[Rfam]
RNA sequence: UGGGUGCGAGAGCGUCUAUA
Numbered sequence: 001u002g003g004g005u006g007c008g009a010g011a012g013c014g015u016c017u018a019u020a
Stems, first nucleotide, its partner, number of pairs: 003016005
RNA: HIV-1 stem-loop 4 packaging signal